[Rfam]
RNA sequence: AAUAGUAGAAGCAUAGUUGGGUGAGAAUCCCAACCGCCGCAGGGGCUAGGUUUCCUUGGCAAUGUUCGUCAGCCAAGGGUUAGUCGGUCCUAAGACGUACCGUAAUUCGAGUACGCCAACAGGGAAACAGGUUAAUAUUCCUGUACCAUCUAGUUUUAAGCGCAAGCCCUGACGCUUUGGGAUAUGCUGGGCGGAGUUAUCGCUCCGUCUAAGCGUCGAAUUCUGUGGAGUACCGUAAUGGUGAGAAGCAGAGGAAUACGUGAUGGGGAAACCCAGCAAAUUCCUGGAGCCCGUGAAAAGGGAAUUAGAUGUCCGUACCGAGAACCGACACAGGUGCCCCUCGCUGAAGAGGCGAAGGCGUGU
Numbered sequence: 001a002a003u004a005g006u007a008g009a010a011g012c013a014u015a016g017u018u019g020g021g022u023g024a025g026a027a028u029c030c031c032a033a034c035c036g037c038c039g040c041a042g043g044g045g046c047u048a049g050g051u052u053u054c055c056u057u058g059g060c061a062a063u064g065u066u067c068g069u070c071a072g073c074c075a076a077g078g079g080u081u082a083g084u085c086g087g088u089c090c091u092a093a094g095a096c097g098u099a100c101c102g103u104a105a106u107u108c109g110a111g112u113a114c115g116c117c118a119a120c121a122g123g124g125a126a127a128c129a130g131g132u133u134a135a136u137a138u139u140c141c142u143g144u145a146c147c148a149u150c151u152a153g154u155u156u157u158a159a160g161c162g163c164a165a166g167c168c169c170u171g172a173c174g175c176u177u178u179g180g181g182a183u184a185u186g187c188u189g190g191g192c193g194g195a196g197u198u199a200u201c202g203c204u205c206c207g208u209c210u211a212a213g214c215g216u217c218g219a220a221u222u223c224u225g226u227g228g229a230g231u232a233c234c235g236u237a238a239u240g241g242u243g244a245g246a247a248g249c250a251g252a253g254g255a256a257u258a259c260g261u262g263a264u265g266g267g268g269a270a271a272c273c274c275a276g277c278a279a280a281u282u283c284c285u286g287g288a289g290c291c292c293g294u295g296a297a298a299a300g301g302g303a304a305u306u307a308g309a310u311g312u313c314c315g316u317a318c319c320g321a322g323a324a325c326c327g328a329c330a331c332a333g334g335u336g337c338c339c340c341u342c343g344c345u346g347a348a349g350a351g352g353c354g355a356a357g358g359c360g361u362g363u
Stems, first nucleotide, its partner, number of pairs: 016034006035360004043339004049319002054078006063071002085315003089123002094117001096115004101109002127144005147311008168302003174290009185278005190209006213261004222252005232242003267272001325334002341355004
Archaeal large subunit ribosomal RNA: a 363-nucleotide part of an RNA from Methanosphaerula palustris. On this family, see Yusupov et al., Science 2001: "Crystal structure of the ribosome at 5.5 A resolution". Clan: LSU clan. It is one of the family's seed sequences.